RNA sequence: UCUAGGGGAAACAAAAUGAACAAAAUUCAUUUUUAAUAAAUGUUUCCGACGAAUAGCCGCCGACCAAAGGGCGGGGGCAAUACAUAUU
Numbered sequence: 001u002c003u004a005g006g007g008g009a010a011a012c013a014a015a016a017u018g019a020a021c022a023a024a025a026u027u028c029a030u031u032u033u034u035a036a037u038a039a040a041u042g043u044u045u046c047c048g049a050c051g052a053a054u055a056g057c058c059g060c061c062g063a064c065c066a067a068a069g070g071g072c073g074g075g076g077g078c079a080a081u082a083c084a085u086a087u088u
Base pairs, nucleotide, nucleotide: 007047008046009045010044011043012042015031016030017029018028019027020026056078057077058076060074061073064070065069

Shown here is an 88-nucleotide RNA sequence, a member of the family "GA-cis RNA". Rfam's curators put it in the seed alignment. It is annotated as a small RNA.